Source information
Shown here is a 188-nucleotide RNA from Salipaludibacillus keqinensis, a member of the family "6S / SsrS RNA". A reference for the family is Barrick et al. (2005), "6S RNA is a widespread regulator of eubacterial RNA polymerase that resembles an open promoter", RNA. Rfam classes the family as a non-coding RNA gene. From the family's description: E. coli 6S RNA was the first non coding RNA to be sequenced, but its function was unknown until recently. It consists of 184 nucleotides that fold into an extended hairpin structure with a large single-stranded internal bulge. The 6S RNA specifically associates with RNA polymerase holoenzyme containing the sigma70 specificity factor. This interaction represses expression from a sigma70-dependent promoter during stationary phase. 6S RNA homologs have recently been identified in most bacterial genomes. It scores 98 bits against the family's covariance model.

[Rfam]
Nucleotides: 188
Base pairs, nucleotide, nucleotide: 002186005183006182007181008180009179010178011177012175013174014173015172017171018170019169035154037152038151039150040149041148042147060132061131062130064128065127066126067125071122074121075120076119077118078117079116080115086109087108091105092104093103094102095101
Number, partner (000 for none) and nucleotide at each position: 001000u002186u003000u004000u005183g006182c007181c008180u009179g010178c011177g012175g013174u014173g015172u016000u017171g018170g019169u020000g021000a022000a023000c024000u025000u026000c027000g028000a029000g030000u031000u032000u033000a034000a035154u036000u037152c038151g039150a040149a041148c042147c043000g044000a045000a046000c047000a048000c049000c050000a051000a052000u053000u054000c055000a056000c057000a058000u059000u060132g061131g062130g063000a064128g065127c066126u067125u068000u069000a070000u071122a072000u073000u074121a075120a076119a077118a078117c079116g080115c081000c082000g083000a084000c085000a086109g087108c088000a089000u090000g091105c092104c093103u094102g095101a096000u097000u098000u099000a100000u101095u102094c103093a104092g105091g106000a107000a108087g109086c110000u111000g112000a113000a114000a115080g116079u117078g118077u119076u120075u121074u122071u123000g124000c125067g126066g127065g128064c129000a130062c131061c132060c133000a134000c135000c136000u137000g138000c139000c140000u141000a142000g143000g144000g145000c146000g147042g148041g149040u150039u151038c152037g153000u154035g155000a156000a157000a158000u159000c160000u161000g162000g163000a164000a165000g166000a167000u168000a169019a170018c171017c172015g173014c174013a175012c176000a177011u178010g179009c180008g181007g182006g183005c184000u185000u186002g187000c188000u